The family of this 105-nucleotide sequence from Shimia abyssi is "TPP riboswitch aptamer (THI element)". Vitamin B(1) in its active form thiamin pyrophosphate (TPP) is an essential coenzyme that is synthesised by coupling of pyrimidine and thiazole moieties in bacteria. The family's consensus secondary structure is taken from published work.
RNA sequence: UCGGGACUGUUGGGGUGCCCUUUGCUAUUGGGGCUGAGAUGCGAAAGCGAACCCAUUGAACCUGAACCGGCUAGAACCGGCGGAGGGAACAGGAUUUGGCUCCAA
Numbered sequence: 001u002c003g004g005g006a007c008u009g010u011u012g013g014g015g016u017g018c019c020c021u022u023u024g025c026u027a028u029u030g031g032g033g034c035u036g037a038g039a040u041g042c043g044a045a046a047g048c049g050a051a052c053c054c055a056u057u058g059a060a061c062c063u064g065a066a067c068c069g070g071c072u073a074g075a076a077c078c079g080g081c082g083g084a085g086g087g088a089a090c091a092g093g094a095u096u097u098g099g100c101u102c103c104a105a
Stems, first nucleotide, its partner, number of pairs: 007092004011055004016049001017034005041048002061086003067080004